[Rfam]
RNA sequence: GUACUCCCUCUGUUCCAUAAUAUAAGAGCAUUUUUUAUACUACACUAGUGUAAAAAACGCUCUUAUAUUAUGGGAUGGAGGGAGUAG
Numbered sequence: 001g002u003a004c005u006c007c008c009u010c011u012g013u014u015c016c017a018u019a020a021u022a023u024a025a026g027a028g029c030a031u032u033u034u035u036u037a038u039a040c041u042a043c044a045c046u047a048g049u050g051u052a053a054a055a056a057a058c059g060c061u062c063u064u065a066u067a068u069u070a071u072g073g074g075a076u077g078g079a080g081g082g083a084g085u086a087g
Base pairs, nucleotide, nucleotide: 003085004084005083007081008080009079010078011077013075014074015073016072017071019069020068021067022066023065024064025063026062027061028060029059031057032056033055034054035053036052037051038050039049040048041047
Shown here is an 87-nucleotide RNA sequence from Aegilops tauschii, a member of the family "MIR1120/MIR1122 microRNA precursor family".
It scores 95 bits against the family's covariance model.
The family has 6 seed sequences and 44,765 matches in Rfam 15.1.
The source organism's lineage runs through Eukaryota, Petrosaviidae, commelinids, Triticeae and Aegilops tauschii.
On this family, see Yao et al., Genome Biol 2007: "Cloning and characterization of microRNAs from wheat (Triticum aestivum L.)".
Its family is annotated with miRNA-mediated post-transcriptional gene silencing and RISC complex in the Gene Ontology.